The record is a 183-nucleotide RNA from Thermacetogenium phaeum, which matches "6S / SsrS RNA" in Rfam.
[Rfam]
RNA sequence: AAAACCCUGCGAUGCGCGUGGAAUCCCAGGAGUUUUGAGCCAACACCAAAACAAUUGGAGCCUGGACUCUGGUUGUGGCUUGUAGGCCCCUCUUUUCGGGGUAACAAAAAGCAACCAGGAGGGCACCACAGUGCUUGAGCCAGGUUCACAAACCCGGGUAACCACGGCAUUUGUGGGGUUUUU
Numbered sequence: 001a002a003a004a005c006c007c008u009g010c011g012a013u014g015c016g017c018g019u020g021g022a023a024u025c026c027c028a029g030g031a032g033u034u035u036u037g038a039g040c041c042a043a044c045a046c047c048a049a050a051a052c053a054a055u056u057g058g059a060g061c062c063u064g065g066a067c068u069c070u071g072g073u074u075g076u077g078g079c080u081u082g083u084a085g086g087c088c089c090c091u092c093u094u095u096u097c098g099g100g101g102u103a104a105c106a107a108a109a110a111g112c113a114a115c116c117a118g119g120a121g122g123g124c125a126c127c128a129c130a131g132u133g134c135u136u137g138a139g140c141c142a143g144g145u146u147c148a149c150a151a152a153c154c155c156g157g158g159u160a161a162c163c164a165c166g167g168c169a170u171u172u173g174u175g176g177g178g179u180u181u182u183u
Stems, first nucleotide, its partner, number of pairs: 002181010012170004017166003032153004036148006056128003060124004067118001070117007082105002087101004
The literature on the family includes a 2000 paper in Cell by Wassarman and Storz, "6S RNA regulates E. coli RNA polymerase activity". It scores 89 bits against the family's covariance model. The base pairs follow the family's consensus structure, which is taken from published work. The family's RNA type in Rfam is non-coding RNA gene. E. coli 6S RNA was the first non coding RNA to be sequenced, but its function was unknown until recently. It consists of 184 nucleotides that fold into an extended hairpin structure with a large single-stranded internal bulge. The 6S RNA specifically associates with RNA polymerase holoenzyme containing the sigma70 specificity factor. This interaction represses expression from a sigma70-dependent promoter during stationary phase. 6S RNA homologs have recently been identified in most bacterial genomes. Many Gram-positive species have two copies of 6S RNA. In Bacillus subtilis, both copies appear to interact with RNA polymerase holoenzyme containing the housekeeping sigma factor and be expressed during different stages of growth. In many proteobacteria, 6S RNA may be processed from a transcript encoding homologs of the E. coli YgfA protein which is a putative 5-formyltetrahydrofolate cycloligase activity.